[Rfam]
RNA sequence: GGCGCGUGCCUUGCUAUAGACCCACCCAGGUAAUCAACGCUGAUUGCCCAUCCACGACAAAGACGCCGU
Numbered sequence: 001g002g003c004g005c006g007u008g009c010c011u012u013g014c015u016a017u018a019g020a021c022c023c024a025c026c027c028a029g030g031u032a033a034u035c036a037a038c039g040c041u042g043a044u045u046g047c048c049c050a051u052c053c054a055c056g057a058c059a060a061a062g063a064c065g066c067c068g069u
Stems, first nucleotide, its partner, number of pairs: 029048007
RNA: narK RNA